Shown here is a 158-nucleotide sequence from Acyrthosiphon pisum, a member of the family "mir-210 microRNA precursor family". Rfam links the family to the GO terms miRNA-mediated post-transcriptional gene silencing and RISC complex.

[Rfam]
RNA sequence: AACACAUUUGAUGUAGCUGCUGGACACUGCACAAGAAUUACUUAAAAGUCGCCACUCGGACUUGUACCUAUAAUAUCAUAUUAUUGUACACGGAGAGUGGUGGCGCCACACGUCUUGUGCGUGUGACAUCGGCUAUGUCGGGUGUGCGCAUAACUACA
Numbered sequence: 001a002a003c004a005c006a007u008u009u010g011a012u013g014u015a016g017c018u019g020c021u022g023g024a025c026a027c028u029g030c031a032c033a034a035g036a037a038u039u040a041c042u043u044a045a046a047a048g049u050c051g052c053c054a055c056u057c058g059g060a061c062u063u064g065u066a067c068c069u070a071u072a073a074u075a076u077c078a079u080a081u082u083a084u085u086g087u088a089c090a091c092g093g094a095g096a097g098u099g100g101u102g103g104c105g106c107c108a109c110a111c112g113u114c115u116u117g118u119g120c121g122u123g124u125g126a127c128a129u130c131g132g133c134u135a136u137g138u139c140g141g142g143u144g145u146g147c148g149c150a151u152a153a154c155u156a157c158a
Stems, first nucleotide, its partner, number of pairs: 005144008015134005021128002025123002028121006035114002
Dot-bracket structure: ....((((((((..(((((.((..((.((((((.((............................................................................)).))))))))...)).)))))..))))))))..............